[Rfam]
RNA sequence: GGCGGAGCACGAAAGCAUCGAAGCGUGUAACGAACCUGGCGAGAGCCACAAGUAGGAAAGCGUGGAGCGGUGUUCCGUCAUCCGUAUUGAAAAACGG
Numbered sequence: 001g002g003c004g005g006a007g008c009a010c011g012a013a014a015g016c017a018u019c020g021a022a023g024c025g026u027g028u029a030a031c032g033a034a035c036c037u038g039g040c041g042a043g044a045g046c047c048a049c050a051a052g053u054a055g056g057a058a059a060g061c062g063u064g065g066a067g068c069g070g071u072g073u074u075c076c077g078u079c080a081u082c083c084g085u086a087u088u089g090a091a092a093a094a095c096g097g
Base pairs, nucleotide, nucleotide: 001079002078003077004076005075006074007073008072009071010070015068016067023063024062025061026060028058031055037048038047039046040045082097083096084095085094
Dot-bracket structure: ((((((((((....((......((((.(..(.....((((....))))......)..).))))...)).))))))))))..((((........))))
Shown here is a 97-nucleotide part of an RNA, a member of the family "Archaeal large subunit ribosomal RNA". A search with the family's covariance model found it, with a score of 2437 bits.